[Rfam]
RNA sequence: CGGGAGAUCGGCAUGGACGGACCCGUCGCCAACCCGGUCAGGUCCGGAAGGAAGCAGCCGUAACGAUUUCCGGUCCGGGUCGUGUCCGGUCUCCCACCC
Numbered sequence: 001c002g003g004g005a006g007a008u009c010g011g012c013a014u015g016g017a018c019g020g021a022c023c024c025g026u027c028g029c030c031a032a033c034c035c036g037g038u039c040a041g042g043u044c045c046g047g048a049a050g051g052a053a054g055c056a057g058c059c060g061u062a063a064c065g066a067u068u069u070c071c072g073g074u075c076c077g078g079g080u081c082g083u084g085u086c087c088g089g090u091c092u093c094c095c096a097c098c099c
Stems, first nucleotide, its partner, number of pairs: 004093005010086006018077006025067004035060004043052003
Shown here is a 99-nucleotide sequence from Paramagnetospirillum magneticum, a member of the family "Bacterial small signal recognition particle RNA". Rfam links the family to the GO terms signal recognition particle, plasma membrane targeting and SRP-dependent cotranslational protein targeting to membrane, signal sequence recognition. It is annotated as a non-coding RNA gene. The source organism's lineage runs through Bacteria, Pseudomonadati, Pseudomonadota, Rhodospirillales and Paramagnetospirillum magneticum. The family's consensus secondary structure is taken from published work. Rfam describes the family as follows. The signal recognition particle (SRP) is a universally conserved ribonucleoprotein involved in the co-translational targeting of proteins to membranes.